[Rfam]
Nucleotides: 124
Stems, first nucleotide, its partner, number of pairs: 002041004007037002009034003012030005062118003067113002069110001074105003078101001080099002085092002
Number, partner (000 for none) and nucleotide at each position: 001000a002041g003040g004039c005038a006000g007037c008036c009034c010033c011032c012030u013029a014028u015027c016026a017000a018000a019000a020000a021000c022000c023000a024000a025000u026016u027015g028014a029013u030012a031000a032011g033010g034009g035000a036008g037007g038005u039004g040003u041002u042000a043000u044000u045000c046000u047000a048000c049000u050000c051000g052000u053000a054000a055000a056000u057000u058000g059000u060000u061000u062118c063117u064116u065000u066000g067113g068112c069110u070000c071000u072000u073000c074105a075104g076103a077000u078101c079000u080099g081098c082000u083000g084000a085092u086091a087000u088000g089000u090000g091086u092085a093000a094000u095000g096000a097000c098081g099080c100000a101078g102000c103076u104075c105074u106000a107000g108000u109000a110069a111000c112068g113067c114000u115000c116064a117063a118062g119000u120000a121000u122000a123000c124000u